[Rfam]
RNA sequence: GGUCAUGAGUUGUCAGCGCGAAGCCCCGGCUUGCUGACCGGCAACCCUCCUUCCGCGGUGGGGUGCUCCGGGUGAUGACCGGGUUGUGGAUGCGAGAGCUCCACGGCAAGCGCGGGUC
Numbered sequence: 001g002g003u004c005a006u007g008a009g010u011u012g013u014c015a016g017c018g019c020g021a022a023g024c025c026c027c028g029g030c031u032u033g034c035u036g037a038c039c040g041g042c043a044a045c046c047c048u049c050c051u052u053c054c055g056c057g058g059u060g061g062g063g064u065g066c067u068c069c070g071g072g073u074g075a076u077g078a079c080c081g082g083g084u085u086g087u088g089g090a091u092g093c094g095a096g097a098g099c100u101c102c103a104c105g106g107c108a109a110g111c112g113c114g115g116g117u118c
Stems, first nucleotide, its partner, number of pairs: 001080004009039001012038006022031002040067003045063003049058002083107008092099002
SAM (S-adenosyl methionine) riboswitch aptamer: a 118-nucleotide sequence from Gordonia jinhuaensis. The base pairs follow the family's consensus structure, which is taken from published work. Lineage of the source: Bacteria > Bacillati > Mycobacteriales > Gordoniaceae > Gordonia. The match comes from Rfam's covariance-model search (106 bits).